[Rfam]
RNA: Eukaryotic large subunit ribosomal RNA, nucleotides 1736 to 2207
Nucleotides: 472
Base pairs, nucleotide, nucleotide: 015033016032017031018030019029020028034470035468036467037466043449044448045447046446049429050428054078055077056076057075058074059073063071064070085425086424087423089159090158094153095152096112097111098110100109101108102107119145120144163180164179165178166177167176183421184420185419186418207415208414209413210412211411219230220229221228222227237396238395239394240393241392242391246381247380248379249378251376252375253374254373255372256371257370259366260365261364263281264280265279266278267277286336287335288334289333290332297325298324299323300322301321305317306316307315308314343361344360345359346358347357348356435444436443451463452462453461454460
Number, partner (000 for none) and nucleotide at each position: 001000g002000g003000u004000a005000g006000u007000a008000g009000c010000a011000a012000a013000u014000a015033u016032u017031c018030a019029a020028a021000c022000g023000a024000g025000a026000g027000c028020u029019u030018u031017g032016a033015a034470g035468g036467c037466c038000g039000a040000a041000g042000u043449g044448g045447a046446g047000a048000a049429g050428g051000g052000u053000u054078c055077c056076a057075u058074g059073u060000g061000a062000a063071c064070a065000g066000c067000a068000g069000u070064u071063g072000a073059a074058c075057a076056u077055g078054g079000g080000u081000c082000a083000g084000u085425c086424g087423g088000u089159c090158c091000u092000a093000a094153g095152g096112g097111a098110u099000g100109g101108g102107c103000g104000a105000a106000c107102g108101c109100c110098g111097u112096u113000c114000g115000g116000a117000a118000g119145g120144g121000c122000g123000g124000g125000g126000c127000g128000a129000u130000g131000g132000c133000c134000u135000c136000c137000g138000u139000c140000g141000c142000c143000c144120c145119c146000a147000g148000c149000c150000g151000a152095u153094c154000g155000a156000a157000a158090g159089g160000g161000a162000g163180u164179c165178g166177g167176g168000u169000u170000c171000a172000g173000a174000u175000c176167c177166c178165c179164g180163a181000a182000c183421c184420c185419g186418g187000a188000g189000u190000g191000g192000c193000g194000g195000a196000g197000a198000c199000g200000g201000g202000c203000g204000c205000c206000g207415c208414g209413a210412g211411g212000c213000g214000u215000c216000c217000a218000g219230u220229g221228c222227g223000g224000u225000a226000a227222c228221g229220c230219a231000a232000a233000c234000g235000a236000a237396c238395c239394c240393g241392g242391a243000g244000a245000a246381g247380c248379u249378g250000g251376c252375g253374g254373g255372g256371g257370c258000c259366c260365c261364g262000g263281g264280a265279a266278g267277a268000g269000u270000u271000c272000u273000c274000u275000a276000u277267u278266c279265u280264u281263u282000g283000u284000g285000a286336a287335g288334g289333g290332c291000a292000g293000g294000g295000c296000g297325c298324c299323c300322u301321g302000g303000a304000a305317u306316g307315g308314g309000u310000u311000c312000g313000u314308c315307c316306c317305g318000a319000g320000a321301u322300a323299g324298g325297g326000g327000c328000c329000c330000g331000c332290g333289c334288c335287c336286u337000g338000g339000a340000a341000a342000g343361c344360g345359c346358c347357g348356c349000g350000g351000u352000u353000c354000c355000g356348g357347c358346g359345g360344c361343g362000u363000c364261c365260g366259g367000u368000g369000a370257g371256c372255u373254c374253u375252c376251g377000u378249c379248g380247g381246c382000c383000c384000u385000u386000g387000a388000a389000a390000a391242u392241c393240c394239g395238g396237g397000g398000g399000a400000g401000a402000a403000g404000g405000u406000g407000u408000a409000a410000a411211u412210c413209u414208c415207g416000c417000g418186c419185c420184g421183g422000g423087c424086c425085g426000u427000a428050c429049c430000c431000a432000u433000a434000u435444c436443c437000g438000c439000a440000g441000c442000a443436g444435g445000u446046c447045u448044c449043c450000a451463a452462g453461g454460u455000g456000a457000a458000c459000a460454g461453c462452c463451u464000c465000u466037g467036g468035c469000g470034u471000g472000u